A member of the RNA family "GlmZ RNA activator of glmS mRNA" from Mangrovibacter sp. MFB070, 201 nucleotides long. Clan: Glm clan. For this family Rfam cites "Two seemingly homologous noncoding RNAs act hierarchically to activate glmS mRNA translation" (Urban and Vogel, PLoS Biol, 2008). Taxonomically the source falls in Mangrovibacter (Bacteria, Pseudomonadota, Gammaproteobacteria, Enterobacteriaceae). It scores 185 bits against the family's covariance model. It is annotated as a small RNA.
[Rfam]
RNA sequence: GUAGAUGCUCAUUCCACCUGUUAUGUUCGCUUUAUGCCUCAUAAUGCCAGGAAUGAUGCAGAGCCUUUGCGGUGCUUAUCGUCCAAAGACAGAUGUCGGUUUCACCCUCAUCAGACACCAUGGACAUAACGUUGAGUGAAGCACCAAGCUUGUUGUUAUAUGACCUGAUUUAACACCUGCCCAGUGGGCAGGUGUUUUUUU
Numbered sequence: 001g002u003a004g005a006u007g008c009u010c011a012u013u014c015c016a017c018c019u020g021u022u023a024u025g026u027u028c029g030c031u032u033u034a035u036g037c038c039u040c041a042u043a044a045u046g047c048c049a050g051g052a053a054u055g056a057u058g059c060a061g062a063g064c065c066u067u068u069g070c071g072g073u074g075c076u077u078a079u080c081g082u083c084c085a086a087a088g089a090c091a092g093a094u095g096u097c098g099g100u101u102u103c104a105c106c107c108u109c110a111u112c113a114g115a116c117a118c119c120a121u122g123g124a125c126a127u128a129a130c131g132u133u134g135a136g137u138g139a140a141g142c143a144c145c146a147a148g149c150u151u152g153u154u155g156u157u158a159u160a161u162g163a164c165c166u167g168a169u170u171u172a173a174c175a176c177c178u179g180c181c182c183a184g185u186g187g188g189c190a191g192g193u194g195u196u197u198u199u200u201u
Stems, first nucleotide, its partner, number of pairs: 001064002006060003009056004015051001017050001019043002027036001029035001071145007081125005092112004155164003172196011
Rfam's curators write: This RNA was discovered in E. coli during a large scale screen.